[Rfam]
Shown here is a 102-nucleotide RNA from Haloplasma contractile, a member of the family "Purine riboswitch aptamer".
Rfam 15.1 lists 4,097 matches to the family in 1,411 species.
A search with the family's covariance model found it, with a score of 84 bits.
Lineage of the source: Bacteria > Mollicutes > Haloplasmatales > Haloplasma > Haloplasma contractile.
RNA sequence: UUGAUAAAAUAUAAGUGUAUUCGUAUAAUAUCGGAAAUAUGGUCCGAAAGUCUCUACCCUGAAACCGUAAAUUUCGGGACUACGAAAUGCAGUGUACAAACC
Numbered sequence: 001u002u003g004a005u006a007a008a009a010u011a012u013a014a015g016u017g018u019a020u021u022c023g024u025a026u027a028a029u030a031u032c033g034g035a036a037a038u039a040u041g042g043u044c045c046g047a048a049a050g051u052c053u054c055u056a057c058c059c060u061g062a063a064a065c066c067g068u069a070a071a072u073u074u075c076g077g078g079a080c081u082a083c084g085a086a087a088u089g090c091a092g093u094g095u096a097c098a099a100a101c102c
Base pairs, nucleotide, nucleotide: 020086021085022084023083024082025081029049031047032046033045034044035043058078059077060076061075062074063073064072